[Rfam]
RNA sequence: AAUACUUAACAACGCCGAGCGUUGGCAUCUAACCAGCCGCCUUCCUUACGAAUGCAGCCGCAUGAUGUCUUCGCCGUGGUACUCAUUAGCAGUACCACCAGGGUUCCGCCGGAAACGGUUGAGCCUCCCACAUUUGGAAAGGUGUAACAUGACUCUGCAA
Number, nucleotide and partner (000 for none) at each position: 001a000002a000003u000004a000005c000006u151007u000008a000009a000010c000011a000012a145013c144014g143015c142016c141017g000018a000019g074020c073021g072022u000023u000024g069025g068026c067027a066028u065029c064030u000031a000032a000033c000034c060035a000036g058037c000038c000039g000040c000041c000042u000043u000044c000045c000046u000047u000048a000049c000050g000051a000052a000053u000054g000055c000056a000057g000058c036059c000060g034061c000062a000063u000064g029065a028066u027067g026068u025069c024070u000071u000072c021073g020074c019075c000076g098077u097078g096079g095080u094081a093082c092083u091084c000085a000086u000087u000088a000089g000090c000091a083092g082093u081094a080095c079096c078097a077098c076099c000100a000101g126102g125103g124104u123105u122106c121107c000108g119109c118110c117111g116112g000113a000114a000115a000116c111117g110118g109119u108120u000121g106122a105123g104124c103125c102126u101127c137128c136129c000130a000131c000132a000133u000134u000135u000136g128137g127138a000139a000140a000141g016142g015143u014144g013145u012146a000147a000148c000149a000150u000151g006152a000153c000154u000155c000156u000157g000158c000159a000160a000
Rfam assigns this 160-nucleotide RNA from Thalassolituus oleivorans to the family "Molybdenum/Tungsten riboswitch aptamer (Moco RNA motif)".